[Rfam]
RNA sequence: AGCUUUUCAAAUCCAUGCAGAGAUUUCGUCGGACACCAACCCAUUAGGUGUGAUCAGACUCUCAAGGUAGAUAAAGCU
Dot-bracket structure: .(((((....(((..((.((((.(((.(((.....................))).))))))))).)))....))))).